[Rfam]
RNA sequence: UGCAGGUAUUUUACGAUUAAGAAGCAAUUGCUUCUGUACAGAUUGUUUAUUAUCUA
Numbered sequence: 001u002g003c004a005g006g007u008a009u010u011u012u013a014c015g016a017u018u019a020a021g022a023a024g025c026a027a028u029u030g031c032u033u034c035u036g037u038a039c040a041g042a043u044u045g046u047u048u049a050u051u052a053u054c055u056a
Stems, first nucleotide, its partner, number of pairs: 018036001020035006
The record is a 56-nucleotide sequence from Musa balbisiana, which matches "Plastid-rps18 3UTR RNA" in Rfam. The family's RNA type in Rfam is cis-regulatory element. The base pairs follow the family's consensus structure, which was predicted with LocARNA. Taxonomically the source falls in Musa (Eukaryota, Viridiplantae, Tracheophyta, Spermatophyta). The literature on the family includes a 2023 paper in Plant Commun by Richter et al., "Retrograde signaling in plants: A critical review focusing on the GUN pathway and beyond". Rfam's curators write: Plastid rps18 is a non-coding RNA (ncRNA) present in plastids. It was identified as a short stem-loop motif in the 3 prime untranslate region (3UTR) of rps18 gene.